[Rfam]
Nucleotides: 179
Stems, first nucleotide, its partner, number of pairs: 005175006012167004017163003030150001032148002035145006055127003059123004069116002072113004081104002086100005
Number, partner (000 for none) and nucleotide at each position: 001000u002000g003000a004000u005175u006174c007173c008172u009171g010170a011000a012167a013166u014165g015164u016000u017163c018162g019161u020000a021000c022000g023000g024000g025000u026000u027000u028000u029000a030150u031000u032148c033147u034000u035145u036144g037143a038142g039141c040140c041000a042000a043000c044000a045000c046000c047000u048000u049000a050000a051000a052000a053000a054000a055127g056126g057125g058000a059123g060122c061121u062120c063000g064000u065000c066000g067000u068000u069116a070115c071000a072113g073112u074111u075110u076000u077000g078000c079000u080000u081104a082103c083000a084000u085000g086100c087099c088098u089097c090096g091000g092000a093000a094000g095000c096090u097089g098088a099087g100086g101000a102000c103082g104081u105000a106000a107000a108000a109000g110075a111074a112073a113072c114000g115070g116069u117000a118000c119000a120062g121061a122060g123059c124000a125057c126056c127055c128000a129000c130000c131000u132000g133000c134000c135000u136000g137000g138000c139000a140040g141039g142038u143037u144036c145035a146000a147033a148032g149000c150030a151000u152000u153000a154000a155000c156000u157000a158000c159000c160000u161019a162018c163017g164015g165014c166013a167012u168000g169000a170010u171009c172008g173007g174006g175005a176000u177000c178000a179000c
The family of this 179-nucleotide RNA sequence from Shouchella oshimensis is "6S / SsrS RNA". It scores 95 bits against the family's covariance model. On this family, see Wassarman and Storz, Cell 2000: "6S RNA regulates E. coli RNA polymerase activity". Rfam's curators write: E. coli 6S RNA was the first non coding RNA to be sequenced, but its function was unknown until recently. It consists of 184 nucleotides that fold into an extended hairpin structure with a large single-stranded internal bulge. The 6S RNA specifically associates with RNA polymerase holoenzyme containing the sigma70 specificity factor. This interaction represses expression from a sigma70-dependent promoter during stationary phase. 6S RNA homologs have recently been identified in most bacterial genomes. By type it is a non-coding RNA gene.